[Rfam]
Notes
Shown here is a 99-nucleotide RNA from Barley yellow dwarf virus GAV, a member of the family "Luteovirus cap-independent translation element (BTE)". This family represents the Luteovirus cap-independent translation element (BTE) as found in barley yellow dwarf virus (BYDV), bean leafroll virus and soybean dwarf virus. The base pairs follow the family's consensus structure, which is taken from published work. For this family Rfam cites "Subgenomic RNA as a riboregulator: negative regulation of RNA replication by Barley yellow dwarf virus subgenomic RNA 2" (Shen and Miller, Virology, 2004). Gene Ontology terms of the family: translational initiation and translation initiation factor binding. It is one of the family's seed sequences. Lineage of the source: Viruses > Riboviria > Tolucaviricetes > Tombusviridae > Luteovirus.
RNA sequence: ACACCACUCGCAAAUUCGGAUCCUGGGAAACAGGCAGAACUUCGGUUCGUAAGCUCGGGUAAACUAGUCCUUUACCGUCGUAUCGUACUUUGUGUGGCC
Numbered sequence: 001a002c003a004c005c006a007c008u009c010g011c012a013a014a015u016u017c018g019g020a021u022c023c024u025g026g027g028a029a030a031c032a033g034g035c036a037g038a039a040c041u042u043c044g045g046u047u048c049g050u051a052a053g054c055u056c057g058g059g060u061a062a063a064c065u066a067g068u069c070c071u072u073u074a075c076c077g078u079c080g081u082a083u084c085g086u087a088c089u090u091u092g093u094g095u096g097g098c099c
Stems, first nucleotide, its partner, number of pairs: 004097003009094006017085003022034004037048004053081002058076006